[Rfam]
RNA sequence: CAGGGUACCCUUCGGCCCUUCUUAGUUCAACCAAAUGAACUAACUUUCAAAAGUGAGGUGAAUUCUGAAAGUUUAGUUGAUUUAGUUGAACUAAGGAGGGUCGGAGGGUACCCUG
Numbered sequence: 001c002a003g004g005g006u007a008c009c010c011u012u013c014g015g016c017c018c019u020u021c022u023u024a025g026u027u028c029a030a031c032c033a034a035a036u037g038a039a040c041u042a043a044c045u046u047u048c049a050a051a052a053g054u055g056a057g058g059u060g061a062a063u064u065c066u067g068a069a070a071g072u073u074u075a076g077u078u079g080a081u082u083u084a085g086u087u088g089a090a091c092u093a094a095g096g097a098g099g100g101u102c103g104g105a106g107g108g109u110a111c112c113c114u115g
Stems, first nucleotide, its partner, number of pairs: 002114030033083004038078006